[Rfam]
RNA sequence: UCACGGGUAACUGUGAGGUGUGAAGGAAGCGAUAGGAAGUAAGGUGGCCGGAGCGUAAGCGAACCUGAUACGGCACAUUAGGAGGGUGAGUCUGCAAAACAUGAUGAAGUCCCAAUACUUGAUCAGUCCUAAUGUGUGCUUGAGGUCGGUAAACCUUACAGGGAGUCAGU
Numbered sequence: 001u002c003a004c005g006g007g008u009a010a011c012u013g014u015g016a017g018g019u020g021u022g023a024a025g026g027a028a029g030c031g032a033u034a035g036g037a038a039g040u041a042a043g044g045u046g047g048c049c050g051g052a053g054c055g056u057a058a059g060c061g062a063a064c065c066u067g068a069u070a071c072g073g074c075a076c077a078u079u080a081g082g083a084g085g086g087u088g089a090g091u092c093u094g095c096a097a098a099a100c101a102u103g104a105u106g107a108a109g110u111c112c113c114a115a116u117a118c119u120u121g122a123u124c125a126g127u128c129c130u131a132a133u134g135u136g137u138g139c140u141u142g143a144g145g146u147c148g149g150u151a152a153a154c155c156u157u158a159c160a161g162g163g164a165g166u167c168a169g170u
Stems, first nucleotide, its partner, number of pairs: 001016006029170002040158005047150005064145003068141001073137003077133007084112004090105003
The family of this 170-nucleotide RNA sequence from Lentisphaera araneosa is "Group II catalytic intron D1-D4-3". The family has 406 seed sequences and 4,274 matches in Rfam 15.1. Lineage of the source: Bacteria > Pseudomonadati > Lentisphaerota > Lentisphaerales > Lentisphaera araneosa. The base pairs follow the family's consensus structure.